[Rfam]
RNA sequence: GGAGGUCCGCGGUAAAUACGCACACAUGCCGCAACCCGCACCAGGGUGCCGUCGCGAACGGUUUGGUGCCGGGGGCCUGUGGAGGACCCAAC
Numbered sequence: 001g002g003a004g005g006u007c008c009g010c011g012g013u014a015a016a017u018a019c020g021c022a023c024a025c026a027u028g029c030c031g032c033a034a035c036c037c038g039c040a041c042c043a044g045g046g047u048g049c050c051g052u053c054g055c056g057a058a059c060g061g062u063u064u065g066g067u068g069c070c071g072g073g074g075g076c077c078u079g080u081g082g083a084g085g086a087c088c089c090a091a092c
Stems, first nucleotide, its partner, number of pairs: 023081004028076003035072002038069006048062005
This 92-nucleotide RNA from Pseudohaliea rubra belongs to the Rfam family "t44 RNA". Rfam describes the family as follows. This family consists of a number of bacterial RNA genes of between 135 and 170 bases in length. The t44 gene has been identified in several species of enteric bacteria but homologs have also been identified in Pseudomonas and Coxiella species. The t44 gene is found between the map and rpsB genes in all species in the full alignment apart from Shigella flexneri. The function of this RNA is unknown. A reference for the family is Tjaden et al. (2002), "Transcriptome analysis of Escherichia coli using high-density oligonucleotide probe arrays", Nucleic Acids Res. It is annotated as a small RNA. NCBI's taxonomy places the organism under Bacteria, Pseudomonadati, Halieaceae, Pseudohaliea, Pseudohaliea rubra.